[Rfam]
RNA sequence: CAGUACGGGCGGGAGAUCGGCGUUGGGCUAGGGUUUUGUGUGGUUCCGUGGUGUCGCGUGGAAGGCGCGUGCGAGCCGAGAGUGAGUGGGAGCGCGAAUGUGUGGCUUGAGUGUGCGGGCGUGGGGCGUGCAAGGCGAGCGCGUGUGCCCACCCUGAGCCCCUCCCGCCGCCUACACCUUGAUCUUAUUUGAUUGGGUCGUGACUCCAGCCCCGCCGAGCCGACCCGAAAUGAGAAGCUCUCCUCCUGUGAAGCCCCCUUCCUGGGGCGCUGUGCAGCGAGGCCUCUUGGGCGGCGGCCACGCCGUGGUCCCCGGGGUCCUGAGUCCUUCGGGGCCCGGUUGCUCGGAAGUGAUGAAUUGAUCAGAUAGACGAGGCCGGGCUUGUCCCGGGCCACUGAUUAUCGAGGCGAUUCUGAUCUGA
Numbered sequence: 001c002a003g004u005a006c007g008g009g010c011g012g013g014a015g016a017u018c019g020g021c022g023u024u025g026g027g028c029u030a031g032g033g034u035u036u037u038g039u040g041u042g043g044u045u046c047c048g049u050g051g052u053g054u055c056g057c058g059u060g061g062a063a064g065g066c067g068c069g070u071g072c073g074a075g076c077c078g079a080g081a082g083u084g085a086g087u088g089g090g091a092g093c094g095c096g097a098a099u100g101u102g103u104g105g106c107u108u109g110a111g112u113g114u115g116c117g118g119g120c121g122u123g124g125g126g127c128g129u130g131c132a133a134g135g136c137g138a139g140c141g142c143g144u145g146u147g148c149c150c151a152c153c154c155u156g157a158g159c160c161c162c163u164c165c166c167g168c169c170g171c172c173u174a175c176a177c178c179u180u181g182a183u184c185u186u187a188u189u190u191g192a193u194u195g196g197g198u199c200g201u202g203a204c205u206c207c208a209g210c211c212c213c214g215c216c217g218a219g220c221c222g223a224c225c226c227g228a229a230a231u232g233a234g235a236a237g238c239u240c241u242c243c244u245c246c247u248g249u250g251a252a253g254c255c256c257c258c259u260u261c262c263u264g265g266g267g268c269g270c271u272g273u274g275c276a277g278c279g280a281g282g283c284c285u286c287u288u289g290g291g292c293g294g295c296g297g298c299c300a301c302g303c304c305g306u307g308g309u310c311c312c313c314g315g316g317g318u319c320c321u322g323a324g325u326c327c328u329u330c331g332g333g334g335c336c337c338g339g340u341u342g343c344u345c346g347g348a349a350g351u352g353a354u355g356a357a358u359u360g361a362u363c364a365g366a367u368a369g370a371c372g373a374g375g376c377c378g379g380g381c382u383u384g385u386c387c388c389g390g391g392c393c394a395c396u397g398a399u400u401a402u403c404g405a406g407g408c409g410a411u412u413c414u415g416a417u418c419u420g421a
Stems, first nucleotide, its partner, number of pairs: 050160003054156001055071006088108001092103004111148003116143002119140002122137002188236003193228004198223003202220001205219001207217001209215002257317001261316007269309003274306002277303003281299004285294002324336001325334003345420004355413006374393004379388002